RNA sequence: GUCCCCUGUGCGGGAGAGUUCGGCGGGCCUAUGCGCUCGCCGGCGCCGAAGGAGCAAUAUCCUCCCCGGGAAUCUCUCAGGCACCUGUACCGCGCAGGGGUG
Numbered sequence: 001g002u003c004c005c006c007u008g009u010g011c012g013g014g015a016g017a018g019u020u021c022g023g024c025g026g027g028c029c030u031a032u033g034c035g036c037u038c039g040c041c042g043g044c045g046c047c048g049a050a051g052g053a054g055c056a057a058u059a060u061c062c063u064c065c066c067c068g069g070g071a072a073u074c075u076c077u078c079a080g081g082c083a084c085c086u087g088u089a090c091c092g093c094g095c096a097g098g099g100g101u102g
Base pairs, nucleotide, nucleotide: 006097007096008095009094010093011092012091013090020043021042022041023040024039025038026037027036028035045082046081047080048078049077052076053075054074058069

Overview:
Shown here is a 102-nucleotide sequence from Nesterenkonia cremea, a member of the family "Glycine riboswitch aptamer". The literature on the family includes a 2004 paper in Science by Mandal et al., "A glycine-dependent riboswitch that uses cooperative binding to control gene expression". NCBI's taxonomy places the organism under Bacteria, Bacillati, Actinomycetes, Micrococcales, Nesterenkonia.